[Rfam]
Shown here is an 82-nucleotide RNA from Pongo abelii, a member of the family "mir-1233 microRNA precursor family". Gene Ontology terms of the family: RISC complex and miRNA-mediated post-transcriptional gene silencing.
Nucleotides: 082
Stems, first nucleotide, its partner, number of pairs: 005080008014071006028063003032059004038055003042051001
Number, partner (000 for none) and nucleotide at each position: 001000g002000u003000g004000a005080g006079u007078g008077g009076g010075a011074g012073g013000c014071c015070a016069g017068g018067g019066c020000a021000c022000c023000a024000c025000a026000g027000g028063g029062g030061g031000a032059g033058c034057u035056g036000c037000a038055g039054g040053g041000c042051c043000a044000u045000c046000a047000g048000a049000g050000g051042g052000a053040c054039c055038c056035c057034a058033g059032c060000a061030u062029c063028u064000g065000a066019g067018c068017c069016c070015u071014g072000u073012c074011u075010u076009c077008u078007u079006g080005c081000a082000g